[Rfam]
RNA sequence: GCUGCUGCUCACACCUGCUGCUGGCGCCCGGCACUGGUCCUGAUCACUCGGUGCCAUCAGCAGGUGUGAGCAGUGGCUG
Numbered sequence: 001g002c003u004g005c006u007g008c009u010c011a012c013a014c015c016u017g018c019u020g021c022u023g024g025c026g027c028c029c030g031g032c033a034c035u036g037g038u039c040c041u042g043a044u045c046a047c048u049c050g051g052u053g054c055c056a057u058c059a060g061c062a063g064g065u066g067u068g069a070g071c072a073g074u075g076g077c078u079g
Stems, first nucleotide, its partner, number of pairs: 004074017022056007
The family of this 79-nucleotide RNA from Cnephaeus nilssonii is "mir-9198 microRNA precursor family". The base pairs follow the family's consensus structure, which was predicted with RNAalifold. The match comes from Rfam's covariance-model search (92 bits). NCBI's taxonomy places the organism under Eukaryota, Craniata, Dipnotetrapodomorpha, Chiroptera, Cnephaeus.